[Rfam]
Streptomyces-metK RNA: a 117-nucleotide RNA from Streptomyces griseicoloratus. Pairs were carried over by alignment from the consensus structure, which is taken from published work. By type it is a small RNA.
RNA sequence: GCGAGACGGGUGGGCCUGCGGUCUUGCGCGACCGAUAAACUGUUCUCGGACGUCGCCGGGUGCAGCUCCCGCGUCGUCCACCCAUGAUCAGCCAGCAGCCGCUGCAACCCCAGGGAG
Number, nucleotide and partner (000 for none) at each position: 001g000002c000003g000004a000005g000006a000007c000008g000009g000010g000011u000012g000013g000014g000015c000016c000017u000018g000019c000020g000021g000022u000023c000024u000025u000026g000027c000028g000029c000030g000031a000032c000033c000034g000035a000036u000037a000038a000039a000040c000041u000042g000043u000044u000045c000046u000047c000048g079049g078050a077051c076052g075053u000054c000055g000056c073057c071058g070059g069060g068061u000062g000063c000064a000065g000066c000067u000068c060069c059070c058071g057072c000073g056074u000075c052076g051077u050078c049079c048080a000081c000082c000083c000084a000085u000086g000087a000088u000089c000090a000091g000092c000093c104094a103095g102096c101097a000098g000099c000100c000101g096102c095103u094104g093105c000106a000107a000108c000109c000110c000111c000112a000113g000114g000115g000116a000117g000

The organism belongs to Streptomyces, within Bacteria. A search with the family's covariance model found it, with a score of 121 bits.